Rfam assigns this 130-nucleotide RNA sequence from Trichocoleus sp. FACHB-262 to the family "c-di-AMP riboswitch aptamer (ydaO/yuaA leader)". Rfam describes the family as follows. This family represents a conserved RNA structure found upstream of the ydaO and yuaA genes in Bacillus subtilis and related genes in other bacteria.

RNA sequence: AAAACUUGAAUGCUGUUUCAUCUGGAACGGAGGAACCGAUUUUUGGGGCUAAUCUCAAAGAUUAAUUUGAGAGAGACACCUUCCAGUCUUAGCCCGUCAGCUAACUCCGUCGGCAGUGGGAGGAGUACCU
Numbered sequence: 001a002a003a004a005c006u007u008g009a010a011u012g013c014u015g016u017u018u019c020a021u022c023u024g025g026a027a028c029g030g031a032g033g034a035a036c037c038g039a040u041u042u043u044u045g046g047g048g049c050u051a052a053u054c055u056c057a058a059a060g061a062u063u064a065a066u067u068u069g070a071g072a073g074a075g076a077c078a079c080c081u082u083c084c085a086g087u088c089u090u091a092g093c094c095c096g097u098c099a100g101c102u103a104a105c106u107c108c109g110u111c112g113g114c115a116g117u118g119g120g121a122g123g124a125g126u127a128c129c130u
Stems, first nucleotide, its partner, number of pairs: 011115004018026002027110006037045002046095003054071004074089004
Its family is annotated with regulation of gene expression and cyclic-di-AMP binding in the Gene Ontology.